[Rfam]
RNA sequence: UGGCUACAAAAGAGGUUACACUAUAGCCACUCAUUUUACUUGGCCACAAGAAGGUUUCACCAUAGCCACUUCUUUUGCCACAUCAUUCUCUUUUUCUUUUAAGCCAAUAUUUAAAUAUUGGCUUAAAAGAAAAAGAGAAUGAUGUGGCAAAAGAAGUGGCUAUGGUGAAACCUUCUUGUGGCCAAGUAAAAUGAGUGGCUAUAGUGUAACCUCUUUUGUAGCCA
Numbered sequence: 001u002g003g004c005u006a007c008a009a010a011a012g013a014g015g016u017u018a019c020a021c022u023a024u025a026g027c028c029a030c031u032c033a034u035u036u037u038a039c040u041u042g043g044c045c046a047c048a049a050g051a052a053g054g055u056u057u058c059a060c061c062a063u064a065g066c067c068a069c070u071u072c073u074u075u076u077g078c079c080a081c082a083u084c085a086u087u088c089u090c091u092u093u094u095u096c097u098u099u100u101a102a103g104c105c106a107a108u109a110u111u112u113a114a115a116u117a118u119u120g121g122c123u124u125a126a127a128a129g130a131a132a133a134a135g136a137g138a139a140u141g142a143u144g145u146g147g148c149a150a151a152a153g154a155a156g157u158g159g160c161u162a163u164g165g166u167g168a169a170a171c172c173u174u175c176u177u178g179u180g181g182c183c184a185a186g187u188a189a190a191a192u193g194a195g196u197g198g199c200u201a202u203a204g205u206g207u208a209a210c211c212u213c214u215u216u217u218g219u220a221g222c223c224a
Stems, first nucleotide, its partner, number of pairs: 001224033037188011049176012063158001070151001081144005089138006095130016